[Rfam]
RNA sequence: CUUCCAUCGGGGAGAGAAGACCCCGUGGAGUUUUACUGCAGCUUGUGCUUGUAGUAUAGUAAAGAUUACAUAGUGUAUUUGGGAGCUAUGCCUCAUUUUCUUUGGGAAAUGAGUGAAGCAACGAUGUAACACCAAAUUAUUUUUGCAGUACUACUUACCCGGUGCAGACCGGGGACACGUGCAGGUAGGCAGUUCGGCUGGGGCGGCACCCCUCUGAAAAAAUAUCAGAGGGGCCCAAAGUUUAGUUCAAACGGGUCAGAAAUCCGUUGAAGAGGGCAAAGCCAAAAACUAGACUGACAGGAUUUCCAAACGCACGGAAUUCUGAGACGAAAGUCUGGCUUAGCGAUCCUUCCUGCGCCCACUAUUGGGGCCGGAAGGUGACAGAAAAAUUACCCCAGGGAUAACAGGCUCGUCGCGGGCGAGAGCUCCUAUCGACCCCGCGGUUUGGUACCUCGAUGUCGGCUUUUCCUAUCCUGGUCCUGCAGCAGGGGCCAAGGGUGAGGCUGCUCGCCUAUUAAAAGGGAACAUGAGCUGGGUUUAGACCGUCGUGAGACAGGUCGGUCUCUGCCUGAUGGAAGCGU
Numbered sequence: 001c002u003u004c005c006a007u008c009g010g011g012g013a014g015a016g017a018a019g020a021c022c023c024c025g026u027g028g029a030g031u032u033u034u035a036c037u038g039c040a041g042c043u044u045g046u047g048c049u050u051g052u053a054g055u056a057u058a059g060u061a062a063a064g065a066u067u068a069c070a071u072a073g074u075g076u077a078u079u080u081g082g083g084a085g086c087u088a089u090g091c092c093u094c095a096u097u098u099u100c101u102u103u104g105g106g107a108a109a110u111g112a113g114u115g116a117a118g119c120a121a122c123g124a125u126g127u128a129a130c131a132c133c134a135a136a137u138u139a140u141u142u143u144u145g146c147a148g149u150a151c152u153a154c155u156u157a158c159c160c161g162g163u164g165c166a167g168a169c170c171g172g173g174g175a176c177a178c179g180u181g182c183a184g185g186u187a188g189g190c191a192g193u194u195c196g197g198c199u200g201g202g203g204c205g206g207c208a209c210c211c212c213u214c215u216g217a218a219a220a221a222a223u224a225u226c227a228g229a230g231g232g233g234c235c236c237a238a239a240g241u242u243u244a245g246u247u248c249a250a251a252c253g254g255g256u257c258a259g260a261a262a263u264c265c266g267u268u269g270a271a272g273a274g275g276g277c278a279a280a281g282c283c284a285a286a287a288a289c290u291a292g293a294c295u296g297a298c299a300g301g302a303u304u305u306c307c308a309a310a311c312g313c314a315c316g317g318a319a320u321u322c323u324g325a326g327a328c329g330a331a332a333g334u335c336u337g338g339c340u341u342a343g344c345g346a347u348c349c350u351u352c353c354u355g356c357g358c359c360c361a362c363u364a365u366u367g368g369g370g371c372c373g374g375a376a377g378g379u380g381a382c383a384g385a386a387a388a389a390u391u392a393c394c395c396c397a398g399g400g401a402u403a404a405c406a407g408g409c410u411c412g413u414c415g416c417g418g419g420c421g422a423g424a425g426c427u428c429c430u431a432u433c434g435a436c437c438c439c440g441c442g443g444u445u446u447g448g449u450a451c452c453u454c455g456a457u458g459u460c461g462g463c464u465u466u467u468c469c470u471a472u473c474c475u476g477g478u479c480c481u482g483c484a485g486c487a488g489g490g491g492c493c494a495a496g497g498g499u500g501a502g503g504c505u506g507c508u509c510g511c512c513u514a515u516u517a518a519a520a521g522g523g524a525a526c527a528u529g530a531g532c533u534g535g536g537u538u539u540a541g542a543c544c545g546u547c548g549u550g551a552g553a554c555a556g557g558u559c560g561g562u563c564u565c566u567g568c569c570u571g572a573u574g575g576a577a578g579c580g581u
Base pairs, nucleotide, nucleotide: 001578002577003576004575005574006573007572008571010570011569012568014565015564022399023398025396027395028394029391030390031389032388033387035193036192037191038190042185043184044183045182046181047180048179051154052153053152054151055150056149057148059146060145061144062143063142064141065140066139068137078136079135080134081133082132085119086118087117096109097108098107099106100105158173159172160171161170196209197207198206199205210232211231212230213229214228215227235338236337241293242292243291244290245289246288247273248272250268251267252266253265254264255263274283275282298324299323300322301321302320303319304318305317306316326335328333349377350376351375352374353373355372357371358370359369360368408449409448410447412446413443414442415441416440417439418438419437423433424432460535461533462532463531464530465527466524467523468522469521470520473498474497477492478491479490480489481488501513502512503511504510541559542558543557544556545554546553547552
A member of the RNA family "Archaeal large subunit ribosomal RNA" from uncultured crenarchaeote 4B7, 581 nucleotides of a longer RNA. NCBI's taxonomy places the organism under Archaea, Thermoproteati, Nitrososphaerota, Nitrososphaeria, Nitrosopumilales. Its family is annotated with ribosome and structural constituent of ribosome in the Gene Ontology. The family's consensus secondary structure is taken from published work. The sequence is in the family's curated seed alignment.